[Rfam]
About this RNA: The family of this 145-nucleotide RNA sequence from Trifolium subterraneum is "Small nucleolar RNA snoR138". Its family is annotated with nucleolus and RNA processing in the Gene Ontology. The literature on the family includes a 2009 paper in Nucleic Acids Res by Chen and Wu, "Mining small RNA sequencing data: a new approach to identify small nucleolar RNAs in Arabidopsis". Lineage of the source: Eukaryota > Magnoliopsida > Mesangiospermae > eudicotyledons > Trifolium.

RNA sequence: UUUGGCUCCGAAUGACUAAAUGGUGAUUCAUUACAUUUUAGUUCAGACAGAGGCAUAUAAAUAACAUCUGAAUUGGUUUGAGGGUACUGAAAGUAUCAUUUUCAGUUCCAUUUUCAUACUGUAGUUUCUUCCAAUUCGGAUAUUC
Numbered sequence: 001u002u003u004g005g006c007u008c009c010g011a012a013u014g015a016c017u018a019a020a021u022g023g024u025g026a027u028u029c030a031u032u033a034c035a036u037u038u039u040a041g042u043u044c045a046g047a048c049a050g051a052g053g054c055a056u057a058u059a060a061a062u063a064a065c066a067u068c069u070g071a072a073u074u075g076g077u078u079u080g081a082g083g084g085u086a087c088u089g090a091a092a093g094u095a096u097c098a099u100u101u102u103c104a105g106u107u108c109c110a111u112u113u114u115c116a117u118a119c120u121g122u123a124g125u126u127u128c129u130u131c132c133a134a135u136u137c138g139g140a141u142a143u144u145c
Stems, first nucleotide, its partner, number of pairs: 003055002006052003014043007023034003069138006076115001080111001082109001084108001087105006123129002
Dot-bracket structure: ..((.(((.....(((((((..(((......)))..)))))))......))).)).............((((((.(...(.(.(..((((((.......))))))..)).)...).......((...))...)))))).......